Shown here is a 175-nucleotide sequence from Lachnotalea sp. AF33-28, a member of the family "Group II catalytic intron D1-D4-3". On this family, see Chu et al., EMBO J 2001: "Control of branch-site choice by a group II intron". Group II introns are found in rRNA, tRNA and mRNA of organelles in fungi, plants and protists, and also in mRNA in bacteria.
RNA sequence: UCCAUCGUGAGGUGGAAUCUGAAGGAAGCCGGACGGUAAACCUCUGGUCUGACGGACAGAAAUCACAUAUAAGGCUUAGUAUAUCGGGUAAGGUUGCUGGACAAACUGAAGCCCCAUAACUAUCCGAAGGUAUACUGGGUAAAUGUGGCAGAUAGGUGGAGGGAAAGAUUACGCA
Numbered sequence: 001u002c003c004a005u006c007g008u009g010a011g012g013u014g015g016a017a018u019c020u021g022a023a024g025g026a027a028g029c030c031g032g033a034c035g036g037u038a039a040a041c042c043u044c045u046g047g048u049c050u051g052a053c054g055g056a057c058a059g060a061a062a063u064c065a066c067a068u069a070u071a072a073g074g075c076u077u078a079g080u081a082u083a084u085c086g087g088g089u090a091a092g093g094u095u096g097c098u099g100g101a102c103a104a105a106c107u108g109a110a111g112c113c114c115c116a117u118a119a120c121u122a123u124c125c126g127a128a129g130g131u132a133u134a135c136u137g138g139g140u141a142a143a144u145g146u147g148g149c150a151g152a153u154a155g156g157u158g159g160a161g162g163g164a165a166a167g168a169u170u171a172c173g174c175a
Stems, first nucleotide, its partner, number of pairs: 001016006030173002037167001041162006047153005063148006074140003078136007086114004092107004